This 167-nucleotide sequence from Salmonella enterica belongs to the Rfam family "SraB RNA". By type it is a small RNA. This RNA was discovered in E. coli during a large scale screen. This ncRNA was found to be expressed only in stationary phase. The function of this RNA is unknown. For this family Rfam cites "Novel small RNA-encoding genes in the intergenic regions of Escherichia coli" (Argaman et al., Curr Biol, 2001). The base pairs follow the family's consensus structure, which was predicted with PFOLD.
[Rfam]
RNA sequence: GGGGCAUAUUUUUUCCCUCAGAUAUAGCGUAAUGAUGAGAGCCAUCUUAAACUAUGCUCUUCGGUCUUCAAGCCUGUCAUACUGACUCGUCUUGAGCGAAAAUAAGUCUGUAACCCGCAAUGUGUGCGAAUUAUGGCAAAAGGCAACCGCAGGCUGCUUUUCUUUGA
Numbered sequence: 001g002g003g004g005c006a007u008a009u010u011u012u013u014u015c016c017c018u019c020a021g022a023u024a025u026a027g028c029g030u031a032a033u034g035a036u037g038a039g040a041g042c043c044a045u046c047u048u049a050a051a052c053u054a055u056g057c058u059c060u061u062c063g064g065u066c067u068u069c070a071a072g073c074c075u076g077u078c079a080u081a082c083u084g085a086c087u088c089g090u091c092u093u094g095a096g097c098g099a100a101a102a103u104a105a106g107u108c109u110g111u112a113a114c115c116c117g118c119a120a121u122g123u124g125u126g127c128g129a130a131u132u133a134u135g136g137c138a139a140a141a142g143g144c145a146a147c148c149g150c151a152g153g154c155u156g157c158u159u160u161u162c163u164u165u166g167a
Stems, first nucleotide, its partner, number of pairs: 017039004060100004065095001069094003073089001076086003110134004116128004139161007147153002